The family of this 600-nucleotide part of an RNA from Methanococcus maripaludis is "Archaeal small subunit ribosomal RNA". The family has 86 seed sequences and 709 matches in Rfam 15.1. It is one of the family's seed sequences. On this family, see Cannone et al., BMC Bioinformatics 2002: "The comparative RNA web (CRW) site: an online database of comparative sequence and structure information for ribosomal, intron, and other RNAs". NCBI's taxonomy places the organism under Archaea, Methanobacteriati, Methanococci, Methanococcus, Methanococcus maripaludis.
RNA sequence: UGGCGGGGGAGCACCACAACGGGUGGAGCCUGCGGUUUAAUUGGAUUCAACGCCGGGCAUCUCACCAGGAGCGACAGCAUGAUGACGGCCAGGUUGACGACCUUGCCUGAAGCGCUGAGAGGUGGUGCAUGGCCAUCGUCAGCUCGUACCGCGAGGCGUCCUGUUAAGUCAGGUAACGAGCGAGACCCGUGCCCUAUGUUGCUACUUUUUCCUCCGGGAGAAAGGCACUCAUAGGGGACCGCUGGCGCUAAGUCAGAGGAAGGAGCGGGCAACGAUAGGUCCGCAUGCCCCGAAUCUCCUGGGCUACACGCGGGCUACAAUGGCUAGGACAAUGGGCCGCAACCCUGAAAAGGGACGCAAAUCUCCUAAACCUAGUCGUAGUUCGGAUCGUGGGCUGUAACUCGCCCACGUGAAGCUGGAAUCCGUAGUAAUCGCAGUUCAUAAUACUGCGGUGAAUGUGUCCCUGCUCCUUGCACACACCGCCCGUCACACCACCCGAGUUGGGUUGAAGUGAGGCCUUGGCCUUUGGCUAGGGUCGAACUUGGGCUCAGCGAGGGGGGUGAAGUCGUAACAAGGUAGCCGUAGGGGAACCUGCGGCUG
Numbered sequence: 001u002g003g004c005g006g007g008g009g010a011g012c013a014c015c016a017c018a019a020c021g022g023g024u025g026g027a028g029c030c031u032g033c034g035g036u037u038u039a040a041u042u043g044g045a046u047u048c049a050a051c052g053c054c055g056g057g058c059a060u061c062u063c064a065c066c067a068g069g070a071g072c073g074a075c076a077g078c079a080u081g082a083u084g085a086c087g088g089c090c091a092g093g094u095u096g097a098c099g100a101c102c103u104u105g106c107c108u109g110a111a112g113c114g115c116u117g118a119g120a121g122g123u124g125g126u127g128c129a130u131g132g133c134c135a136u137c138g139u140c141a142g143c144u145c146g147u148a149c150c151g152c153g154a155g156g157c158g159u160c161c162u163g164u165u166a167a168g169u170c171a172g173g174u175a176a177c178g179a180g181c182g183a184g185a186c187c188c189g190u191g192c193c194c195u196a197u198g199u200u201g202c203u204a205c206u207u208u209u210u211c212c213u214c215c216g217g218g219a220g221a222a223a224g225g226c227a228c229u230c231a232u233a234g235g236g237g238a239c240c241g242c243u244g245g246c247g248c249u250a251a252g253u254c255a256g257a258g259g260a261a262g263g264a265g266c267g268g269g270c271a272a273c274g275a276u277a278g279g280u281c282c283g284c285a286u287g288c289c290c291c292g293a294a295u296c297u298c299c300u301g302g303g304c305u306a307c308a309c310g311c312g313g314g315c316u317a318c319a320a321u322g323g324c325u326a327g328g329a330c331a332a333u334g335g336g337c338c339g340c341a342a343c344c345c346u347g348a349a350a351a352g353g354g355a356c357g358c359a360a361a362u363c364u365c366c367u368a369a370a371c372c373u374a375g376u377c378g379u380a381g382u383u384c385g386g387a388u389c390g391u392g393g394g395c396u397g398u399a400a401c402u403c404g405c406c407c408a409c410g411u412g413a414a415g416c417u418g419g420a421a422u423c424c425g426u427a428g429u430a431a432u433c434g435c436a437g438u439u440c441a442u443a444a445u446a447c448u449g450c451g452g453u454g455a456a457u458g459u460g461u462c463c464c465u466g467c468u469c470c471u472u473g474c475a476c477a478c479a480c481c482g483c484c485c486g487u488c489a490c491a492c493c494a495c496c497c498g499a500g501u502u503g504g505g506u507u508g509a510a511g512u513g514a515g516g517c518c519u520u521g522g523c524c525u526u527u528g529g530c531u532a533g534g535g536u537c538g539a540a541c542u543u544g545g546g547c548u549c550a551g552c553g554a555g556g557g558g559g560g561u562g563a564a565g566u567c568g569u570a571a572c573a574a575g576g577u578a579g580c581c582g583u584a585g586g587g588g589a590a591c592c593u594g595c596g597g598c599u600g
Stems, first nucleotide, its partner, number of pairs: 001477002003474003007471007016461002020425005025318001027316008035307002041056004065302007075117004080111001087107003091103003121291002124289004130285002132280003135276004142181006149156002160173004187268004192236007202225002206223007239259002242256005322377007334365003339358002343354004384415001389410007431453008480575001482572001485568002488565001490562004495557003500552008509543004515537010577600010